[Rfam]
RNA sequence: GCAGGGCUCUGACCUAUGAAUUGACAGCCAGUGUCCAUUCUCCCUUCUGGCUGCCAAUUCCAUAGGUCACAGGUAUGU
Numbered sequence: 001g002c003a004g005g006g007c008u009c010u011g012a013c014c015u016a017u018g019a020a021u022u023g024a025c026a027g028c029c030a031g032u033g034u035c036c037a038u039u040c041u042c043c044c045u046u047c048u049g050g051c052u053g054c055c056a057a058u059u060c061c062a063u064a065g066g067u068c069a070c071a072g073g074u075a076u077g078u
Base pairs, nucleotide, nucleotide: 001078002077003076005074007072008071010069011068013066014065015064016063018060019059020058021057022056023055025053026052027051028050029049030048031047
Overview
Shown here is a 78-nucleotide RNA sequence from Vombatus ursinus, a member of the family "mir-192/215 microRNA precursor family". Gene Ontology terms of the family: RISC complex and miRNA-mediated post-transcriptional gene silencing. From the family's description: This family represents the human microRNA (miRNA) precursors mir-192 and mir-215. Animal miRNAs are transcribed as ~70nt precursors and subsequently processed by the Dicer enzyme to give a ~22nt product. In this case the mature sequence comes from the 5' arm of the precursor. A search with the family's covariance model found it, with a score of 76 bits.